A member of the RNA family "small nucleolar RNA snoR114" from Zingiber officinale, 85 nucleotides long. Gene Ontology terms of the family: RNA processing and nucleolus. The organism belongs to Zingiber, within Eukaryota. The family's consensus secondary structure was predicted with RNAalifold. A search with the family's covariance model found it, with a score of 46 bits.
[Rfam]
RNA sequence: GAGCAAUGAAGAAAAUUAAAGUGAUAAAGGGUCUCUUUCACAGCCGUCUGAUCUCGAUCGGAUGAUUCAAAUCACAUCUGAGCUC
Numbered sequence: 001g002a003g004c005a006a007u008g009a010a011g012a013a014a015a016u017u018a019a020a021g022u023g024a025u026a027a028a029g030g031g032u033c034u035c036u037u038u039c040a041c042a043g044c045c046g047u048c049u050g051a052u053c054u055c056g057a058u059c060g061g062a063u064g065a066u067u068c069a070a071a072u073c074a075c076a077u078c079u080g081a082g083c084u085c
Base pairs, nucleotide, nucleotide: 001085002084003083004082